[Rfam]
RNA sequence: CUUCAGGGAGCCCAGGUACAGCGGCUUGUCCGCCGUGUGCUCCUGGCCGUAGGUGUUCAGCAGCGCCUGGGCCUC
Numbered sequence: 001c002u003u004c005a006g007g008g009a010g011c012c013c014a015g016g017u018a019c020a021g022c023g024g025c026u027u028g029u030c031c032g033c034c035g036u037g038u039g040c041u042c043c044u045g046g047c048c049g050u051a052g053g054u055g056u057u058c059a060g061c062a063g064c065g066c067c068u069g070g071g072c073c074u075c
Base pairs, nucleotide, nucleotide: 014026015025017023031071033069038065039064043060044059045058048055049054
The record is a 75-nucleotide RNA sequence from Allokutzneria albata, which matches "ASpks TB sRNA" in Rfam. On this family, see Arnvig and Young, Mol Microbiol 2009: "Identification of small RNAs in Mycobacterium tuberculosis". Rfam 15.1 lists 9,052 matches to the family in 683 species. The base pairs follow the family's consensus structure, which is taken from published work. It is annotated as an antisense RNA.